[Rfam]
RNA: mir-124 microRNA precursor family
Organism: Oryzias javanicus
RNA sequence: CGCUCUUCGUGUUCACAGUGGACUUUAAUUGAUUCAGGCACAAUUAAGGCACGCGGUGAAUGCCAAGAGAG
Numbered sequence: 001c002g003c004u005c006u007u008c009g010u011g012u013u014c015a016c017a018g019u020g021g022a023c024u025u026u027a028a029u030u031g032a033u034u035c036a037g038g039c040a041c042a043a044u045u046a047a048g049g050c051a052c053g054c055g056g057u058g059a060a061u062g063c064c065a066a067g068a069g070a071g
Stems, first nucleotide, its partner, number of pairs: 003069004009063008018054003023049008